[Rfam]
The family of this 143-nucleotide RNA sequence from Bacteroides sp. CAG:754 is "Group II catalytic intron D1-D4-7". The base pairs follow the family's consensus structure. It scores 99 bits against the family's covariance model. Rfam 15.1 lists 1,296 matches to the family in 705 species. For this family Rfam cites "The ins and outs of group II introns" (Bonen and Vogel, Trends Genet, 2001). About the family: Group II introns are found in rRNA, tRNA and mRNA of organelles in fungi, plants and protists, and also in mRNA in bacteria.
RNA sequence: CCUGCUGUUCCGUCAGCAGUAGCUUGGAACACAUGCAUCACCAGCAAUGACGUUGUGUGAAGCUGUUCGACAACGAACCCGCCGCAAGGGAAGACAGAAUCGUGAGGGGAAUCAACUGCCGCCAGCAUCAUGCGGCUAAGGGG
Numbered sequence: 001c002c003u004g005c006u007g008u009u010c011c012g013u014c015a016g017c018a019g020u021a022g023c024u025u026g027g028a029a030c031a032c033a034u035g036c037a038u039c040a041c042c043a044g045c046a047a048u049g050a051c052g053u054u055g056u057g058u059g060a061a062g063c064u065g066u067u068c069g070a071c072a073a074c075g076a077a078c079c080c081g082c083c084g085c086a087a088g089g090g091a092a093g094a095c096a097g098a099a100u101c102g103u104g105a106g107g108g109g110a111a112u113c114a115a116c117u118g119c120c121g122c123c124a125g126c127a128u129c130a131u132g133c134g135g136c137u138a139a140g141g142g143g
Base pairs, nucleotide, nucleotide: 002019003018004017005016006015007014027068028067029066030065031064032059033058034057035056036055037054039052042049043048082089083088093113100107101106118136119135120134121133122132